RNA: Group II catalytic intron D1-D4-5
Organism: Lentibacillus salicampi
RNA sequence: UCCAACGUUACAACGGAGGAUGGGAAUGAUGGAACCAUGUUUCCUGAAACCAUCCCGUCAACAAAUCCUGCAUGCGUCAAGGCUGACAGGCUUUGGGGUAUGAAGCACAGGUGAUUCGGCUGAACGAAGGCUGCAGCCACUCUUUUUUUAGAGAAGGUAUGCCAACGGAUAGGCCGCACGGCUGAAAA
Numbered sequence: 001u002c003c004a005a006c007g008u009u010a011c012a013a014c015g016g017a018g019g020a021u022g023g024g025a026a027u028g029a030u031g032g033a034a035c036c037a038u039g040u041u042u043c044c045u046g047a048a049a050c051c052a053u054c055c056c057g058u059c060a061a062c063a064a065a066u067c068c069u070g071c072a073u074g075c076g077u078c079a080a081g082g083c084u085g086a087c088a089g090g091c092u093u094u095g096g097g098g099u100a101u102g103a104a105g106c107a108c109a110g111g112u113g114a115u116u117c118g119g120c121u122g123a124a125c126g127a128a129g130g131c132u133g134c135a136g137c138c139a140c141u142c143u144u145u146u147u148u149u150a151g152a153g154a155a156g157g158u159a160u161g162c163c164a165a166c167g168g169a170u171a172g173g174c175c176g177c178a179c180g181g182c183u184g185a186a187a188a
Base pairs, nucleotide, nucleotide: 018055019054020053021052022051023050031045032044034042056180057179058178067111068110069109070108071102072101073100074099075098077096078095079094080093081092082091083090084089117176118175119174120173121172125167126166129163130162131151132150133149139146